This 88-nucleotide RNA sequence from Callithrix jacchus belongs to the Rfam family "mir-515 microRNA precursor family".
It scores 69 bits against the family's covariance model.
Its family is annotated with RISC complex and miRNA-mediated post-transcriptional gene silencing in the Gene Ontology.
The literature on the family includes a 2005 paper in Nat Genet by Bentwich et al., "Identification of hundreds of conserved and nonconserved human microRNAs".
The base pairs follow the family's consensus structure, which was predicted with RNAalifold.
[Rfam]
RNA sequence: UCUCAUGCUGUGACCCUCUAAACGGAAGUGCUUUCUGUCCUCUGAGACAAAAACAAAGGCCUUCCCUUUAGAGUGUUACCAUUUGAGA
Numbered sequence: 001u002c003u004c005a006u007g008c009u010g011u012g013a014c015c016c017u018c019u020a021a022a023c024g025g026a027a028g029u030g031c032u033u034u035c036u037g038u039c040c041u042c043u044g045a046g047a048c049a050a051a052a053a054c055a056a057a058g059g060c061c062u063u064c065c066c067u068u069u070a071g072a073g074u075g076u077u078a079c080c081a082u083u084u085g086a087g088a
Base pairs, nucleotide, nucleotide: 001088002087003086004085005084007082010079011078012077013076014075016073017072018071020069021068022067024065025064026063027062028061031058032057033056034055038053
Dot-bracket structure: (((((.(..(((((.(((.(((.(((((..((((...(..............).))))..))))).))).))).)))))..).)))))